[Rfam]
This 49-nucleotide sequence from Spirosoma agri belongs to the Rfam family "Guanidine-II riboswitch aptamer (mini-ykkC)". Taxonomically the source falls in Spirosoma (Bacteria, Pseudomonadati, Bacteroidota, Cytophagales).

RNA sequence: CCAGGAGGACGACCUCCCCCCCACUGGGAAACGUUUCGGGACGGCCCGG
Number, nucleotide and partner (000 for none) at each position: 001c000002c000003a000004g017005g016006a015007g014008g013009a000010c000011g000012a000013c008014c007015u006016c005017c004018c000019c000020c000021c000022c000023a000024c000025u000026g000027g000028g000029a000030a000031a000032c000033g000034u000035u000036u049037c048038g047039g046040g045041a000042c000043g000044g000045c040046c039047c038048g037049g036